[Rfam]
RNA sequence: AUAAAGGGUGCUUCCUAUACUCUAUGGGACACUGGGCUAGUCUCAGUGGGGUAUGGCUAUCAAGACAUACCCAGCAUGUAAUCUUUUGAAUGAGGGAAGUUCGGACGACUUGUCGCUGGACGCCCUC
Numbered sequence: 001a002u003a004a005a006g007g008g009u010g011c012u013u014c015c016u017a018u019a020c021u022c023u024a025u026g027g028g029a030c031a032c033u034g035g036g037c038u039a040g041u042c043u044c045a046g047u048g049g050g051g052u053a054u055g056g057c058u059a060u061c062a063a064g065a066c067a068u069a070c071c072c073a074g075c076a077u078g079u080a081a082u083c084u085u086u087u088g089a090a091u092g093a094g095g096g097a098a099g100u101u102c103g104g105a106c107g108a109c110u111u112g113u114c115g116c117u118g119g120a121c122g123c124c125c126u127c
Stems, first nucleotide, its partner, number of pairs: 008077005013029007030048007049072007094125003099121005106115003

This 127-nucleotide RNA sequence from Hyalella azteca belongs to the Rfam family "U11 spliceosomal RNA". Taxonomically the source falls in Hyalella (Eukaryota, Metazoa, Panarthropoda, Hyalellidae). The match comes from Rfam's covariance-model search (74 bits). Rfam 15.1 lists 2,595 matches to the family in 1,202 species. The family's RNA type in Rfam is spliceosomal small nuclear RNA. Its family is annotated with U11 snRNP, mRNA 5'-splice site recognition and pre-mRNA 5'-splice site binding in the Gene Ontology. A reference for the family is Montzka and Steitz (1988), "Additional low-abundance human small nuclear ribonucleoproteins: U11, U12, etc", Proc Natl Acad Sci U S A.